The record is a 126-nucleotide RNA from Aotus nancymaae, which matches "Small nucleolar RNA SNORA11" in Rfam. U107 (SNORA11) is a member of the H/ACA class of snoRNAs that guide the sites of modification of uridines to pseudouridines. This snoRNA was identified by RT-PCR from blood cells and its expression confirmed by Northern blot analysis. There is no predicted target for this guide snRNA.
[Rfam]
RNA sequence: UAGGUGAAAAUACAGGGGGCCUGAAGAAUGGCUCCUCUGUUUGUAACACACCCAGCAGGAAUCUGGAGUCAUUGUGAUGACAGGCAUGAAGCUUGUGGCCUCCCUACAAACAAAUGCUGUACAUGU
Numbered sequence: 001u002a003g004g005u006g007a008a009a010a011u012a013c014a015g016g017g018g019g020c021c022u023g024a025a026g027a028a029u030g031g032c033u034c035c036u037c038u039g040u041u042u043g044u045a046a047c048a049c050a051c052c053c054a055g056c057a058g059g060a061a062u063c064u065g066g067a068g069u070c071a072u073u074g075u076g077a078u079g080a081c082a083g084g085c086a087u088g089a090a091g092c093u094u095g096u097g098g099c100c101u102c103c104c105u106a107c108a109a110a111c112a113a114a115u116g117c118u119g120u121a122c123a124u125g126u
Stems, first nucleotide, its partner, number of pairs: 001050001004049003010042001012040007019032003067118003073112003078108002083099001085097005
Record summary: Rfam 15.1 lists 2,014 matches to the family in 202 species. Pairs were carried over by alignment from the consensus structure, which was predicted with RNAalifold. The source organism's lineage runs through Eukaryota, Euarchontoglires, Primates, Haplorrhini and Aotus. It is annotated as an H/ACA-box small nucleolar RNA. Its family is annotated with nucleolus and RNA processing in the Gene Ontology.